[Rfam]
Background
A member of the RNA family "THF (Tetrahydrofolate) riboswitch aptamer" from Anaerobacterium chartisolvens, 138 nucleotides long.
RNA sequence: GACAGAGUAGGGAAUUGCGCGUUAAGUGCCAGUCGGACGGGAAGUUGCCGCUGGACGAAAAAUCCUGUUAAAAAGCAGCCUGAAUGUAAUUCUGGUGAUUUUAAAGGGUUUGCGGUGCAAUUUUCGCAUUCCGCUGUC
Numbered sequence: 001g002a003c004a005g006a007g008u009a010g011g012g013a014a015u016u017g018c019g020c021g022u023u024a025a026g027u028g029c030c031a032g033u034c035g036g037a038c039g040g041g042a043a044g045u046u047g048c049c050g051c052u053g054g055a056c057g058a059a060a061a062a063u064c065c066u067g068u069u070a071a072a073a074a075g076c077a078g079c080c081u082g083a084a085u086g087u088a089a090u091u092c093u094g095g096u097g098a099u100u101u102u103a104a105a106g107g108g109u110u111u112g113c114g115g116u117g118c119a120a121u122u123u124u125c126g127c128a129u130u131c132c133g134c135u136g137u138c
Stems, first nucleotide, its partner, number of pairs: 001138005010125010020114003026056002029054004034050003040131003044127001060111007
Rfam links the family to the GO term tetrahydrofolate metabolic process. It scores 79 bits against the family's covariance model.